[Rfam]
RNA sequence: AUCUCGCAAAAGGGGGUCACAGCAGGAGCGUUAAAUGUCGCGAUCCCGAUCGAACCCAGGUACUGAUGGGUCGUGAAUCCUGCU
Number, nucleotide and partner (000 for none) at each position: 001a000002u000003c000004u000005c000006g000007c000008a000009a000010a000011a000012g000013g047014g046015g045016g044017u043018c042019a000020c000021a084022g083023c082024a081025g080026g079027a078028g041029c040030g039031u000032u000033a000034a000035a000036u000037g000038u000039c030040g029041c028042g018043a017044u016045c015046c014047c013048g000049a000050u000051c073052g072053a000054a071055c070056c069057c068058a000059g000060g000061u000062a000063c000064u000065g000066a000067u000068g057069g056070g055071u054072c052073g051074u000075g000076a000077a000078u027079c026080c025081u024082g023083c022084u021

Rfam assigns this 84-nucleotide RNA sequence from Zootermopsis nevadensis to the family "Mammalian CPEB3 ribozyme".